[Rfam]
Nucleotides: 135
Stems, first nucleotide, its partner, number of pairs: 005052002008049003013044004021036004072128001074126005083116003087112001092107003
Number, partner (000 for none) and nucleotide at each position: 001000g002000u003000u004000g005052g006051c007000u008049g009048a010047a011000a012000a013044u014043u015042a016041u017000c018000c019000c020000c021036g022035g023034c024033u025000c026000u027000g028000a029000c030000u031000a032000u033024g034023g035022c036021c037000a038000c039000a040000g041016a042015u043014g044013a045000g046000g047010u048009u049008u050000u051006g052005u053000g054000c055000u056000c057000a058000g059000a060000g061000g062000g063000a064000c065000c066000a067000a068000a069000c070000u071000a072128g073000g074126g075125g076124u077123c078122u079000c080000a081000g082000c083116u084115c085114a086000a087112u088000g089000c090000u091000c092107u093106a094105c095000u096000g097000u098000c099000c100000u101000c102000g103000g104000u105094g106093u107092a108000g109000a110000g111000u112087g113000g114085u115084g116083a117000a118000a119000c120000u121000c122078a123077g124076g125075c126074u127000c128072u129000u130000a131000c132000a133000a134000g135000u

Shown here is a 135-nucleotide RNA from Tupaia belangeri, a member of the family "Small nucleolar RNA ACA64". On this family, see Schattner et al., RNA 2006: "A computational screen for mammalian pseudouridylation guide H/ACA RNAs". The family has 30 seed sequences and 9,537 matches in Rfam 15.1. The family's consensus secondary structure was predicted with WAR. Its family is annotated with RNA processing and nucleolus in the Gene Ontology.